[Rfam]
RNA sequence: AAUACGUGAUGAGAAGAUGUUUCGGUCCCAGUUGAUAAACACUGAUAACUGUUACAUUUUUCUGAUGUU
Numbered sequence: 001a002a003u004a005c006g007u008g009a010u011g012a013g014a015a016g017a018u019g020u021u022u023c024g025g026u027c028c029c030a031g032u033u034g035a036u037a038a039a040c041a042c043u044g045a046u047a048a049c050u051g052u053u054a055c056a057u058u059u060u061u062c063u064g065a066u067g068u069u
Stems, first nucleotide, its partner, number of pairs: 001069004
A member of the RNA family "Small nucleolar RNA SNORD73" from Neotoma lepida, 69 nucleotides long. The source organism's lineage runs through Eukaryota, Chordata, Sarcopterygii, Muroidea and Neotoma. On this family, see Rebane et al., Gene 1998: "A novel snoRNA (U73) is encoded within the introns of the human and mouse ribosomal protein S3a genes". By type it is a C/D-box small nucleolar RNA. Gene Ontology terms of the family: RNA processing and nucleolus.